[Rfam]
RNA: PyrD leader
RNA sequence: AUUCCAAUUGCCGGCCUAAUGGCUGAUAAUCUCCUCCCGGUUUGCAACUGGGAUCUCAGGAGAAGACAUGUUU
Numbered sequence: 001a002u003u004c005c006a007a008u009u010g011c012c013g014g015c016c017u018a019a020u021g022g023c024u025g026a027u028a029a030u031c032u033c034c035u036c037c038c039g040g041u042u043u044g045c046a047a048c049u050g051g052g053a054u055c056u057c058a059g060g061a062g063a064a065g066a067c068a069u070g071u072u073u
Base pairs, nucleotide, nucleotide: 036052037051038050039049040048041047
Dot-bracket structure: ...................................((((((.....)))))).....................